[Rfam]
RNA: skipping-rope RNA
RNA sequence: UGUAGAAAAGGUGGAAAAAUUCGAUGCGUCCACACUCAAUUGAAAAAUUGAUAAGAGAUGAGGGAGAAAGCGUCGCCCUCUUUCUAUG
Numbered sequence: 001u002g003u004a005g006a007a008a009a010g011g012u013g014g015a016a017a018a019a020u021u022c023g024a025u026g027c028g029u030c031c032a033c034a035c036u037c038a039a040u041u042g043a044a045a046a047a048u049u050g051a052u053a054a055g056a057g058a059u060g061a062g063g064g065a066g067a068a069a070g071c072g073u074c075g076c077c078c079u080c081u082u083u084c085u086a087u088g
Stems, first nucleotide, its partner, number of pairs: 001088008011033005024073004035055001036051006060080005